[Rfam]
Shown here is a 75-nucleotide sequence from Nephila pilipes, a member of the family "Vault RNA". Lineage of the source: Eukaryota > Eumetazoa > Protostomia > Orbiculariae > Nephila.
RNA sequence: GUGCAGGCCUAGUCUAGUGGUUACUUCGAUAUACUGUUUCCCUCAUCGCUACCACGGGCGCAAUCCUGCUUUUUU
Numbered sequence: 001g002u003g004c005a006g007g008c009c010u011a012g013u014c015u016a017g018u019g020g021u022u023a024c025u026u027c028g029a030u031a032u033a034c035u036g037u038u039u040c041c042c043u044c045a046u047c048g049c050u051a052c053c054a055c056g057g058g059c060g061c062a063a064u065c066c067u068g069c070u071u072u073u074u075u
Stems, first nucleotide, its partner, number of pairs: 003069005012059004017055004027048003